RNA sequence: GGUAUGUUAUUAACCCCACGAUAAGCCCCGGAAUCUUAUUGUGAUUGAAGAUAUA
Numbered sequence: 001g002g003u004a005u006g007u008u009a010u011u012a013a014c015c016c017c018a019c020g021a022u023a024a025g026c027c028c029c030g031g032a033a034u035c036u037u038a039u040u041g042u043g044a045u046u047g048a049a050g051a052u053a054u055a
Stems, first nucleotide, its partner, number of pairs: 008055003011051001017043009
Ribosomal protein L13 leader: a 55-nucleotide RNA from Bacillus salacetis. Rfam's curators write: This family is a putative r-protein leader autoregulatory structure found in B. subtilis and other low-GC Gram-positive bacteria. It is located in the 5' untranslated regions of mRNAs encoding the L13-S9 (rplM-rpsI) ribosomal protein operon. The base pairs follow the family's consensus structure, which was predicted with CMfinder. Rfam links the family to the GO term regulation of gene expression.